Record summary: A member of the RNA family "Archaeal large subunit ribosomal RNA" from Methanobacterium sp. A39, 553 nucleotides of a longer RNA. Rfam links the family to the GO terms structural constituent of ribosome and ribosome. The family's consensus secondary structure is taken from published work. Taxonomically the source falls in Methanobacterium (Archaea, Methanobacteriati, Methanobacteria, Methanobacteriales).

[Rfam]
RNA sequence: CUACUAAAACCAUCUGGGGGAUGACUUGGCUUGAGUCGCCGAAGAGGGUCGCGGCAAGCAGCGAUAUGCCUGGGCGAGGAGCAUGCAUCCAUAGAACCCAGGAUUACCUAAUGGGACUUCCUAUCUUCGGAUGCUCCGUGAGGAGCGGGAACCCGCUGAACUGAAACAUCUUAGUAGGCGGAGGAAAAGAAAGCAAUUUAUGCGAUACCGUUAGUAAAGUCGAUCGAACACGGUGUAGGACAAACUGAAUCCCUUUAUGAUAAGUUUGGGGAGAUGUGGUGUAGAAAGGCUUGGUUUACAACCUUGUUUGAUGAAGUUGAAUUGGACUGGAAUGUUCAGCCGUAGAGGGUGAAAGCCCCGUAAAUGUAUGUUGGAUGUGGUUGGAUUGAGUUCUUGAGUAGCGUCGAUUGGAAAUUCGGCGUGAAUCUGGGAGGCAUCGACUCCUAAUUCUAAAUACGUCUCAAGACCGAUAGUGUACUAGUACCGUGAGGGAAAGUUGAAAAGAACCCCUAAUGGGGGGUGAAAAGAACCUGAAACCAGAUGGUGACAGCCA
Numbered sequence: 001c002u003a004c005u006a007a008a009a010c011c012a013u014c015u016g017g018g019g020g021a022u023g024a025c026u027u028g029g030c031u032u033g034a035g036u037c038g039c040c041g042a043a044g045a046g047g048g049u050c051g052c053g054g055c056a057a058g059c060a061g062c063g064a065u066a067u068g069c070c071u072g073g074g075c076g077a078g079g080a081g082c083a084u085g086c087a088u089c090c091a092u093a094g095a096a097c098c099c100a101g102g103a104u105u106a107c108c109u110a111a112u113g114g115g116a117c118u119u120c121c122u123a124u125c126u127u128c129g130g131a132u133g134c135u136c137c138g139u140g141a142g143g144a145g146c147g148g149g150a151a152c153c154c155g156c157u158g159a160a161c162u163g164a165a166a167c168a169u170c171u172u173a174g175u176a177g178g179c180g181g182a183g184g185a186a187a188a189g190a191a192a193g194c195a196a197u198u199u200a201u202g203c204g205a206u207a208c209c210g211u212u213a214g215u216a217a218a219g220u221c222g223a224u225c226g227a228a229c230a231c232g233g234u235g236u237a238g239g240a241c242a243a244a245c246u247g248a249a250u251c252c253c254u255u256u257a258u259g260a261u262a263a264g265u266u267u268g269g270g271g272a273g274a275u276g277u278g279g280u281g282u283a284g285a286a287a288g289g290c291u292u293g294g295u296u297u298a299c300a301a302c303c304u305u306g307u308u309u310g311a312u313g314a315a316g317u318u319g320a321a322u323u324g325g326a327c328u329g330g331a332a333u334g335u336u337c338a339g340c341c342g343u344a345g346a347g348g349g350u351g352a353a354a355g356c357c358c359c360g361u362a363a364a365u366g367u368a369u370g371u372u373g374g375a376u377g378u379g380g381u382u383g384g385a386u387u388g389a390g391u392u393c394u395u396g397a398g399u400a401g402c403g404u405c406g407a408u409u410g411g412a413a414a415u416u417c418g419g420c421g422u423g424a425a426u427c428u429g430g431g432a433g434g435c436a437u438c439g440a441c442u443c444c445u446a447a448u449u450c451u452a453a454a455u456a457c458g459u460c461u462c463a464a465g466a467c468c469g470a471u472a473g474u475g476u477a478c479u480a481g482u483a484c485c486g487u488g489a490g491g492g493a494a495a496g497u498u499g500a501a502a503a504g505a506a507c508c509c510c511u512a513a514u515g516g517g518g519g520g521u522g523a524a525a526a527g528a529a530c531c532u533g534a535a536a537c538c539a540g541a542u543g544g545u546g547a548c549a550g551c552c553a
Base pairs, nucleotide, nucleotide: 009545010544011543012542013541014540015539016538017537023531024497025496028468029467030465031464032463033462034461035460037458038457046109047108048107049106050063051062052061069102070101071100072099073098074097078090079089080088113122114121115120134145135144136143137142152183153181154180155179156178157177163170164169193203194202207234208233209232210231211230218224237451238450239449240448245279246278247277257265258264290390291389292388293387300382301381302380303379316365317364318363322338324337325336326335327334341345347359348358349357401422402421403420404419405418406417407416429445430444431443432442433441484491485490